Rfam assigns this 70-nucleotide sequence from Prevotella sp. TF12-30 to the family "Bacteroidetes FopS (family of paralogous sRNAs)". Rfam links the family to the GO term sRNA-mediated gene silencing. Rfam's curators write: The RNA-binding protein RbpB and BTncRNA_FopS sRNA are involved in the post-transcription regulation of polysaccharide utilisation loci (PUL). FopS sRNAs function as post-transcriptional repressors by binding to the vicinity of the start codon of the first mRNA of target PUL polycistrons, typically corresponding to the cognate SusC homolog, impeding translation of the respective glycan transporter. It is annotated as a small RNA.
[Rfam]
RNA sequence: GUGUUUUUCAUAGUAUUAGAUUUAAGGUUAACAAGGUAUUGGGUCACGGCGGUGACCCUUUUUUGUUUUU
Numbered sequence: 001g002u003g004u005u006u007u008u009c010a011u012a013g014u015a016u017u018a019g020a021u022u023u024a025a026g027g028u029u030a031a032c033a034a035g036g037u038a039u040u041g042g043g044u045c046a047c048g049g050c051g052g053u054g055a056c057c058c059u060u061u062u063u064u065g066u067u068u069u070u
Stems, first nucleotide, its partner, number of pairs: 041058007